[Rfam]
RNA sequence: GGUACGGACGGACGAUAGUCUUCAACGACCGUUCCGUUUAACACGAGGUCGGUGGGACUUUCGUCCGUUUGUAAG
Numbered sequence: 001g002g003u004a005c006g007g008a009c010g011g012a013c014g015a016u017a018g019u020c021u022u023c024a025a026c027g028a029c030c031g032u033u034c035c036g037u038u039u040a041a042c043a044c045g046a047g048g049u050c051g052g053u054g055g056g057a058c059u060u061u062c063g064u065c066c067g068u069u070u071g072u073a074a075g
Base pairs, nucleotide, nucleotide: 003073004072005071006070007069009067010066011065012064013063014062015061017059018058019057020056021055023054024053026051027050028049029048030047
Rfam assigns this 75-nucleotide RNA from Anopheles sinensis to the family "mir-278 microRNA precursor family". NCBI's taxonomy places the organism under Eukaryota, Hexapoda, Panorpida, Culicidae, Myzorhynchus.